Overview: The family of this 294-nucleotide sequence from Dendrobium catenatum is "Plant signal recognition particle RNA". NCBI's taxonomy places the organism under Eukaryota, Tracheophyta, Mesangiospermae, Epidendroideae, Dendrobium.
Nucleotides: 294
Stems, first nucleotide, its partner, number of pairs: 001040003004023003008019004028037003058294001060292006067285001071283001073281002076278005081269002083266002087262001089261001091260003095256002101254008110242002113240005119233006126227003130170003135165001137164002140161009177224006187216001189214003196207003
Number, partner (000 for none) and nucleotide at each position: 001040g002039c003038u004023g005022a006021g007000c008019u009018c010017g011016u012000u013000a014000a015000c016011g017010c018009g019008a020000u021006c022005u023004u024000g025000u026000a027000a028037c029036c030035c031000a032000u033000g034000u035030g036029g037028g038003g039002g040001c041000a042000g043000u044000u045000g046000g047000g048000u049000g050000c051000u052000c053000u054000g055000a056000a057000u058294g059000a060292u061291u062290c063289a064288u065287c066000u067285g068000a069000a070000u071283c072000a073281c074280a075000u076278u077277g078276g079275c080274u081269g082268g083266u084265u085000u086000g087262u088000a089261u090000u091260g092259g093258g094000c095256c096255g097000a098000a099000u100000g101254u102253u103252g104251g105250c106249c107248c108247g109000c110242c111241c112000c113240a114239u115238c116237c117236a118000a119233g120232a121231u122230g123229g124228g125000u126227a127226g128225u129000u130170g131169a132168u133000u134000g135165a136000u137164a138163c139000a140161g141160g142159u143158u144157u145156a146155g147154g148153c149000g150000u151000a152000g153148g154147c155146c156145u157144a158143a159142a160141u161140u162000a163138g164137u165135u166000g167000u168132g169131u170130u171000u172000u173000a174000a175000a176000u177224u178223a179222g180221a181220g182219g183000g184000g185000a186000a187216a188000g189214c190213g191212u192000u193000a194000g195000g196207c197206u198205g199000g200000u201000u202000u203000a204000a205198c206197a207196g208000a209000g210000c211000a212191g213190c214189g215000a216187u217000u218000a219182c220181c221180u222179c223178u224177a225128a226127c227126u228124c229123u230122c231121a232120u233119c234000g235000g236117u237116g238115g239114a240113u241111g242110g243000a244000a245000a246000a247108c248107g249106g250105g251104c252103c253102a254101g255096u256095g257000g258093u259092c260091c261089g262087g263000g264000c265084a266083a267000g268082c269081c270000a271000a272000g273000u274080a275079g276078c277077c278076g279000u280074u281073g282000g283071g284000c285067c286000u287065g288064g289063u290062g291061a292060a293000c294058c